RNA sequence: CAUCUCCACCACCCCGAUGACACAAUAUCCUGCAGCGGUAUUGUGUAGUGACCUGCAGUGUCAACGGCGGGUGGAGAUG
Numbered sequence: 001c002a003u004c005u006c007c008a009c010c011a012c013c014c015c016g017a018u019g020a021c022a023c024a025a026u027a028u029c030c031u032g033c034a035g036c037g038g039u040a041u042u043g044u045g046u047a048g049u050g051a052c053c054u055g056c057a058g059u060g061u062c063a064a065c066g067g068c069g070g071g072u073g074g075a076g077a078u079g
Base pairs, nucleotide, nucleotide: 001079002078003077004076005075006074010073011072012071013070014069024042025041026040027039028038029037049063050062051061052060
RNA: bZIP non canonical Hac1/Xbp1 intron